A member of the RNA family "c-di-GMP-I riboswitch aptamer" from a Gallionellaceae bacterium, 83 nucleotides long. The organism belongs to Gallionellaceae, within Bacteria.
RNA sequence: UUUGAAAAAGGGCAAACCUGUUGAAAAGCAGGGACGCAAAAUUUCCGAUCUAAGGGGGAACCUAUGAUAGCGGGAUUGCCAAA
Numbered sequence: 001u002u003u004g005a006a007a008a009a010g011g012g013c014a015a016a017c018c019u020g021u022u023g024a025a026a027a028g029c030a031g032g033g034a035c036g037c038a039a040a041a042u043u044u045c046c047g048a049u050c051u052a053a054g055g056g057g058g059a060a061c062c063u064a065u066g067a068u069a070g071c072g073g074g075a076u077u078g079c080c081a082a083a
Stems, first nucleotide, its partner, number of pairs: 012037002017032006040077004045073003048068003055062002